[Rfam]
RNA sequence: GGCUCCCUUCGCGCGGGAGCUCGACCCGCGCCAUCCGAAAUGAUCGCGUUCAUCGACGCCCACCGCGACGCCUUCGGGGUCGAGCCGAUCUGCCGUGUGCUGCAGUUCGCCCCG
Numbered sequence: 001g002g003c004u005c006c007c008u009u010c011g012c013g014c015g016g017g018a019g020c021u022c023g024a025c026c027c028g029c030g031c032c033a034u035c036c037g038a039a040a041u042g043a044u045c046g047c048g049u050u051c052a053u054c055g056a057c058g059c060c061c062a063c064c065g066c067g068a069c070g071c072c073u074u075c076g077g078g079g080u081c082g083a084g085c086c087g088a089u090c091u092g093c094c095g096u097g098u099g100c101u102g103c104a105g106u107u108c109g110c111c112c113c114g
Stems, first nucleotide, its partner, number of pairs: 013029005075114005086109002090105004095100001